RNA sequence: GUUCCAUUGCACGACUGACGGAAGUGGAGUACCACAGGGGAGUGCAAUGAUGCUGCCGUAGCAGCAGAGAGGAAGUACGUCUUCCAUCGCCGACCGUCUGGGCAAACGCC
Numbered sequence: 001g002u003u004c005c006a007u008u009g010c011a012c013g014a015c016u017g018a019c020g021g022a023a024g025u026g027g028a029g030u031a032c033c034a035c036a037g038g039g040g041a042g043u044g045c046a047a048u049g050a051u052g053c054u055g056c057c058g059u060a061g062c063a064g065c066a067g068a069g070a071g072g073a074a075g076u077a078c079g080u081c082u083u084c085c086a087u088c089g090c091c092g093a094c095c096g097u098c099u100g101g102g103c104a105a106a107c108g109c110c
Base pairs, nucleotide, nucleotide: 005049006048007047008046009045010044011043012042015039016038017098018097019096020095021094024035025034026033027032087105089103090102091101